RNA sequence: AAAUAGAUUAGUUAGGUGAGGCUCCUAUACAAACAUAGGCUACUGCCCAAAAAUGUCGAGAGACGCCAAUGGGUAUAACAGAGAUGAUCGAUAUAAGGUUUUCUUUAACGUAGCUAAAGUUCUUUGUAACUUUUACGUUGUAUAGUGCUAAAACUCAACGAUUGGAUCUCACA
Numbered sequence: 001a002a003a004u005a006g007a008u009u010a011g012u013u014a015g016g017u018g019a020g021g022c023u024c025c026u027a028u029a030c031a032a033a034c035a036u037a038g039g040c041u042a043c044u045g046c047c048c049a050a051a052a053a054u055g056u057c058g059a060g061a062g063a064c065g066c067c068a069a070u071g072g073g074u075a076u077a078a079c080a081g082a083g084a085u086g087a088u089c090g091a092u093a094u095a096a097g098g099u100u101u102u103c104u105u106u107a108a109c110g111u112a113g114c115u116a117a118a119g120u121u122c123u124u125u126g127u128a129a130c131u132u133u134u135a136c137g138u139u140g141u142a143u144a145g146u147g148c149u150a151a152a153a154c155u156c157a158a159c160g161a162u163u164g165g166a167u168c169u170c171a172c173a
Base pairs, nucleotide, nucleotide: 005169006168007167008166009165011159012158013096015155016154017153020149021148022147025145026144027143028142029141030140031139032138039114040113041112042111043110045074046073047072048071049070054065055064056063057062081105082104083103084102087099088098089097116133117132118131119130120129

The family of this 173-nucleotide sequence from Vagococcus teuberi is "M-box riboswitch aptamer (ykoK leader)".
It scores 155 bits against the family's covariance model.
NCBI's taxonomy places the organism under Bacteria, Bacilli, Lactobacillales, Enterococcaceae, Vagococcus.
A reference for the family is Barrick et al. (2004), "New RNA motifs suggest an expanded scope for riboswitches in bacterial genetic control", Proc Natl Acad Sci U S A.